[Rfam]
About this RNA: The record is a 68-nucleotide RNA from Homo sapiens, which matches "mir-3135 microRNA precursor family" in Rfam. The sequence is in the family's curated seed alignment.
RNA sequence: UGCCCAGGCUGGAGCGAGUGCAGUGGUGCAGUCAGUCCUAGCUCACUGCAGCCUCGAACUCCUGGGCU
Numbered sequence: 001u002g003c004c005c006a007g008g009c010u011g012g013a014g015c016g017a018g019u020g021c022a023g024u025g026g027u028g029c030a031g032u033c034a035g036u037c038c039u040a041g042c043u044c045a046c047u048g049c050a051g052c053c054u055c056g057a058a059c060u061c062c063u064g065g066g067c068u
Stems, first nucleotide, its partner, number of pairs: 002067007010056003015051001019050008028042002
Rfam links the family to the GO terms miRNA-mediated post-transcriptional gene silencing and RISC complex. Taxonomically the source falls in Homo (Eukaryota, Tetrapoda, Eutheria, Primates).